[Rfam]
Rfam assigns this 137-nucleotide RNA to the family "Small nucleolar RNA SNORA29". Rfam describes the family as follows. ACA29 is a member of the H/ACA class of snoRNA that guide the sites of modification of uridines to pseudouridines. It is one of the family's seed sequences. Rfam links the family to the GO terms nucleolus and RNA processing. Pairs were carried over by alignment from the consensus structure, which was predicted with PFOLD. For this family Rfam cites "RNomics: an experimental approach that identifies 201 candidates for novel, small, non-messenger RNAs in mouse" (Huttenhofer et al., EMBO J, 2001).
RNA sequence: CUUCCCAUUUGACUACCACAUUUUCUCCUAAUAGAGUUUAGUGGCUAUGCUUAUGGGAUAGAUGAAAAGUGCCAUGAUCUGAAGAGGGGGAGCUGUUCCGUGUCUUUCCUCUAUAUGAAAUGGCUGAACAGAAUUUU
Numbered sequence: 001c002u003u004c005c006c007a008u009u010u011g012a013c014u015a016c017c018a019c020a021u022u023u024u025c026u027c028c029u030a031a032u033a034g035a036g037u038u039u040a041g042u043g044g045c046u047a048u049g050c051u052u053a054u055g056g057g058a059u060a061g062a063u064g065a066a067a068a069g070u071g072c073c074a075u076g077a078u079c080u081g082a083a084g085a086g087g088g089g090g091a092g093c094u095g096u097u098c099c100g101u102g103u104c105u106u107u108c109c110u111c112u113a114u115a116u117g118a119a120a121u122g123g124c125u126g127a128a129c130a131g132a133a134u135u136u137u
Stems, first nucleotide, its partner, number of pairs: 004057004016044004071124004089112004

Its Rfam clan is "SNORA20 clan".